A member of the RNA family "mir-29 microRNA precursor family" from Esox lucius, 71 nucleotides long. This family represents the microRNA (miRNA) precursors mir-29. Pairs were carried over by alignment from the consensus structure, which was predicted with PFOLD. The organism belongs to Esox, within Eukaryota. For this family Rfam cites "microRNAs: tiny regulators with great potential" (Ambros, Cell, 2001). It scores 69 bits against the family's covariance model.
RNA sequence: GGAAGCUGGUUUCAGGUGGUGGCUUAGAGUGUUUUAAUCAGUUAUCUAGCACCAUUUGAAAUCAGUGUUCU
Numbered sequence: 001g002g003a004a005g006c007u008g009g010u011u012u013c014a015g016g017u018g019g020u021g022g023c024u025u026a027g028a029g030u031g032u033u034u035u036a037a038u039c040a041g042u043u044a045u046c047u048a049g050c051a052c053c054a055u056u057u058g059a060a061a062u063c064a065g066u067g068u069u070c071u
Stems, first nucleotide, its partner, number of pairs: 001071004005066010016055006025048004